The family of this 101-nucleotide RNA sequence from Rhodanobacter sp. B05 is "Glycine riboswitch aptamer".
RNA sequence: AAACGCAUGGUGGGAGAAGCGGGCGGCCCUUGACCGGGCCCGUGCCGCUGCCGAAGACGCAACGCCCGUAAUCGCUCAGGCUCCCAUACCAUCAUGUGCGA
Numbered sequence: 001a002a003a004c005g006c007a008u009g010g011u012g013g014g015a016g017a018a019g020c021g022g023g024c025g026g027c028c029c030u031u032g033a034c035c036g037g038g039c040c041c042g043u044g045c046c047g048c049u050g051c052c053g054a055a056g057a058c059g060c061a062a063c064g065c066c067c068g069u070a071a072u073c074g075c076u077c078a079g080g081c082u083c084c085c086a087u088a089c090c091a092u093c094a095u096g097u098g099c100g101a
Stems, first nucleotide, its partner, number of pairs: 006096008019048004050081003053077002058074002063068001

The match comes from Rfam's covariance-model search (43 bits). Rfam's curators write: This family represents the bacterial glycine riboswitch.